Acido-Lenti-1 RNA: a 46-nucleotide sequence from Rosistilla oblonga.
A search with the family's covariance model found it, with a score of 42 bits.
RNA sequence: CCGUGGGCUGAUGCCCACGGCUAAAUGCUGACAUCGCUUCGCGAUU
Numbered sequence: 001c002c003g004u005g006g007g008c009u010g011a012u013g014c015c016c017a018c019g020g021c022u023a024a025a026u027g028c029u030g031a032c033a034u035c036g037c038u039u040c041g042c043g044a045u046u
Base pairs, nucleotide, nucleotide: 001020002019003018004017005016006015007014008013033045034044035043036042037041